[Rfam]
RNA sequence: UGUUGCUCAUUCAACUGGUUAUGAUUGCGUUGCUAACUGGCAAAUAUUUUCGCUCAUAACAUCUGGAAUGAUGCCAAAAGAAAGGGUGCCUAUCGUCCACCAGACCGAUAACAGGGCGUGAAAACGAACUUUAUCAAGCAUCGGACGACACGUUGAGUGAGGCACCGCCUA
Numbered sequence: 001u002g003u004u005g006c007u008c009a010u011u012c013a014a015c016u017g018g019u020u021a022u023g024a025u026u027g028c029g030u031u032g033c034u035a036a037c038u039g040g041c042a043a044a045u046a047u048u049u050u051c052g053c054u055c056a057u058a059a060c061a062u063c064u065g066g067a068a069u070g071a072u073g074c075c076a077a078a079a080g081a082a083a084g085g086g087u088g089c090c091u092a093u094c095g096u097c098c099a100c101c102a103g104a105c106c107g108a109u110a111a112c113a114g115g116g117c118g119u120g121a122a123a124a125c126g127a128a129c130u131u132u133a134u135c136a137a138g139c140a141u142c143g144g145a146c147g148a149c150a151c152g153u154u155g156a157g158u159g160a161g162g163c164a165c166c167g168c169c170u171a
Base pairs, nucleotide, nucleotide: 005074006073007071008070009069010068011067012066019059020058021057022056023055024054027053028052029051085166086165087164088163089162090161091160094147095146096145097144098143107135108134109133110132111131149159150158151157